[Rfam]
RNA: TPP riboswitch aptamer (THI element)
RNA sequence: ACCGUCACCUCGGGGUGCCCGGAUCGGGCUGAGAUGCAUGACGCGAACCCGUUGAACCUGAACCGGCUAGAACCGGCGGAGGGAAGGUCGUGGGUCAUACU
Numbered sequence: 001a002c003c004g005u006c007a008c009c010u011c012g013g014g015g016u017g018c019c020c021g022g023a024u025c026g027g028g029c030u031g032a033g034a035u036g037c038a039u040g041a042c043g044c045g046a047a048c049c050c051g052u053u054g055a056a057c058c059u060g061a062a063c064c065g066g067c068u069a070g071a072a073c074c075g076g077c078g079g080a081g082g083g084a085a086g087g088u089c090g091u092g093g094g095u096c097a098u099a100c101u
Stems, first nucleotide, its partner, number of pairs: 007088004011051004016045001017029005036044002057082003063076004